A member of the RNA family "Histidine operon leader" from Salinivibrio sp. KP-1, 138 nucleotides long. The match comes from Rfam's covariance-model search (64 bits). It is annotated as a cis-regulatory leader. Rfam links the family to the GO term histidine biosynthetic process. The literature on the family includes a 1982 paper in Annu Rev Genet by Kolter and Yanofsky, "Attenuation in amino acid biosynthetic operons". About the family: At least 6 amino acid operons are known to be regulated by attenuation. In each a leader sequence of 150-200 bp is found upstream of the first gene in the operon. This leader sequence can assume two different secondary structures known as the terminator and the anti-terminator structure. In each case the leader also codes for very short peptide sequence that is rich in the end product amino acid of the operon.
RNA sequence: GCAUCACCACCAUCAUCCUGACUAGUCUUUCGGGAGGAAUGGUUUCGACUGGAAGACGAGUAAAAGCGCUUCCGUCGGUCAUUAGCCAGCUAACAGAUUCAGACCCUCGGGAGCACCGUCUUCCGAGGGUUUUUUCUU
Numbered sequence: 001g002c003a004u005c006a007c008c009a010c011c012a013u014c015a016u017c018c019u020g021a022c023u024a025g026u027c028u029u030u031c032g033g034g035a036g037g038a039a040u041g042g043u044u045u046c047g048a049c050u051g052g053a054a055g056a057c058g059a060g061u062a063a064a065a066g067c068g069c070u071u072c073c074g075u076c077g078g079u080c081a082u083u084a085g086c087c088a089g090c091u092a093a094c095a096g097a098u099u100c101a102g103a104c105c106c107u108c109g110g111g112a113g114c115a116c117c118g119u120c121u122u123c124c125g126a127g128g129g130u131u132u133u134u135u136c137u138u
Stems, first nucleotide, its partner, number of pairs: 008047001011041003017034005048075002051073005101132013
Dot-bracket structure: .......(..(((...(((((........)))))....))).....)((.(((((.............))))))).........................(((((((((((((......)))))))))))))......